[Rfam]
The family of this 130-nucleotide sequence from Camelus dromedarius is "Small nucleolar RNA SNORA72".
It is annotated as an H/ACA-box small nucleolar RNA.
Rfam's curators write: U72 is a member of the H/ACA class of snoRNAs. The snoRNA gene is located in intron 4 of the ribosomal L30 protein gene in human, mouse and chicken.
RNA sequence: AAGUGUAUUAACACAUUUCUUUUAAUAUAAAGAAUGGGUAAUGCUAAACAUUCACUAUAUCAAGACCAUGCAUGUGUCCCCAGACCUAGGUCUUUCCCUGGGUCUGGUUUCAUAAAUGCUGGUGAUAAAC
Dot-bracket structure: ..(((...........((((.((.........)).)))..)...........))).........((((.((........((((((((((........))))))))))..........)))))).......
A reference for the family is Ganot et al. (1997), "The family of box ACA small nucleolar RNAs is defined by an evolutionarily conserved secondary structure and ubiquitous sequence elements essential for RNA accumulation", Genes Dev. Taxonomically the source falls in Camelus (Eukaryota, Opisthokonta, Mammalia, Artiodactyla).